[Rfam]
The record is a 164-nucleotide RNA sequence from Peromyscus maniculatus, which matches "U1 spliceosomal RNA" in Rfam. NCBI's taxonomy places the organism under Eukaryota, Dipnotetrapodomorpha, Eutheria, Glires, Peromyscus maniculatus. Its Rfam clan is "U1 clan".
RNA sequence: GUACUUACAUGGCAAGGAGAAAUACCAUGAUCAGGAAGGUGCUUUUCUCAGGCCAAGGCUUAUCCAUUAUACUCUGGAAGUGCUGACUCGGACGAUUUCCCCCAAAUAGAGAAAACUUGACUGUAUAAUGUGUGGUAGUAGGGACUGCAUUUGAGCUCUCUUUU
Number, nucleotide and partner (000 for none) at each position: 001g000002u000003a000004c000005u000006u000007a000008c000009a000010u000011g000012g124013c123014a122015a000016g121017g049018a048019g047020a046021a045022a044023u000024a043025c000026c041027a040028u039029g000030a000031u000032c000033a000034g000035g000036a000037a000038g000039g028040u027041g026042c000043u024044u022045u021046u020047c019048u018049c017050a000051g000052g089053c000054c000055a000056a000057g084058g083059c082060u000061u080062a000063u078064c077065c076066a000067u000068u000069a000070u000071a000072c000073u000074c000075u000076g065077g064078a063079a000080g061081u000082g059083c058084u057085g000086a000087c000088u000089c052090g000091g000092a000093c119094g118095a117096u115097u113098u112099c000100c000101c109102c000103c000104a000105a000106a000107u000108a000109g101110a000111g000112a098113a097114a000115a096116c000117u095118u094119g093120a000121c016122u014123g013124u012125a000126u000127a000128a000129u000130g000131u000132g000133u000134g000135g000136u000137a000138g000139u000140a163141g162142g161143g160144a159145c000146u000147g156148c155149a000150u000151u000152u000153g000154a000155g148156c147157u000158c000159u144160c143161u142162u141163u140164u000

Rfam classes the family as a spliceosomal small nuclear RNA. The base pairs follow the family's consensus structure, which is taken from published work.